[Rfam]
RNA: Burkholderia sRNA Bp1_Cand738_SIPHT
RNA sequence: AAAAAACCAGCGUCUGGUGGCGCUGGCCGGGACUACAACUCAAGCCGUCGGAUACGCCGUGCAGGAUUCGGCGGACGGUGACGCGCUGCGUCAAAGAUCGGUGAUUGGCGGCUCGAAGCCUUUUACCCUGCAGCCAAUGUGAGCGGAUUCUAGCAGGGUUUUAUAGAUCGUCAACACUAUAAAACAUUGAAAUCAUAACAAAAAGUAA
Numbered sequence: 001a002a003a004a005a006a007c008c009a010g011c012g013u014c015u016g017g018u019g020g021c022g023c024u025g026g027c028c029g030g031g032a033c034u035a036c037a038a039c040u041c042a043a044g045c046c047g048u049c050g051g052a053u054a055c056g057c058c059g060u061g062c063a064g065g066a067u068u069c070g071g072c073g074g075a076c077g078g079u080g081a082c083g084c085g086c087u088g089c090g091u092c093a094a095a096g097a098u099c100g101g102u103g104a105u106u107g108g109c110g111g112c113u114c115g116a117a118g119c120c121u122u123u124u125a126c127c128c129u130g131c132a133g134c135c136a137a138u139g140u141g142a143g144c145g146g147a148u149u150c151u152a153g154c155a156g157g158g159u160u161u162u163a164u165a166g167a168u169c170g171u172c173a174a175c176a177c178u179a180u181a182a183a184a185c186a187u188u189g190a191a192a193u194c195a196u197a198a199c200a201a202a203a204a205g206u207a208a
Base pairs, nucleotide, nucleotide: 007026008025009024010023011022012021013020045111046110047109048108049107055073056072057071058070059069080092081091082090083089084088138176139175140174143171144170145169146168149167150166151165152164